[Rfam]
RNA: Archaeal large subunit ribosomal RNA, nucleotides 2658 to 2907
RNA sequence: UGGUACCUGACGGGAACAUUCGUAUAGUACGAGAGGAACUCCGAAUGGUCACCACUGGUGUACCGGUCGUCCGAGAGGGCGCGUGCCGGGCAGCCACGUGACACGGGGUAAGAGCUGAAUGCAUCUAAGCUCGAAACCCACCUGGAAAAGAGGUACCGCCGAGACCACUCGUAGAAGACGAGUUCGAUAGACUCGGGGUGUGCGCGCCGAGGCAACGAGGCGUUCAGCCCGCGAGCACUAACUGGUCGAG
Numbered sequence: 001u002g003g004u005a006c007c008u009g010a011c012g013g014g015a016a017c018a019u020u021c022g023u024a025u026a027g028u029a030c031g032a033g034a035g036g037a038a039c040u041c042c043g044a045a046u047g048g049u050c051a052c053c054a055c056u057g058g059u060g061u062a063c064c065g066g067u068c069g070u071c072c073g074a075g076a077g078g079g080c081g082c083g084u085g086c087c088g089g090g091c092a093g094c095c096a097c098g099u100g101a102c103a104c105g106g107g108g109u110a111a112g113a114g115c116u117g118a119a120u121g122c123a124u125c126u127a128a129g130c131u132c133g134a135a136a137c138c139c140a141c142c143u144g145g146a147a148a149a150g151a152g153g154u155a156c157c158g159c160c161g162a163g164a165c166c167a168c169u170c171g172u173a174g175a176a177g178a179c180g181a182g183u184u185c186g187a188u189a190g191a192c193u194c195g196g197g198g199u200g201u202g203c204g205c206g207c208c209g210a211g212g213c214a215a216c217g218a219g220g221c222g223u224u225c226a227g228c229c230c231g232c233g234a235g236c237a238c239u240a241a242c243u244g245g246u247c248g249a250g
Stems, first nucleotide, its partner, number of pairs: 001158008011144004017047006024040001048102005056096003063089005068081005105139003112132005163247004167183005188240003192235004196230003204223005211216001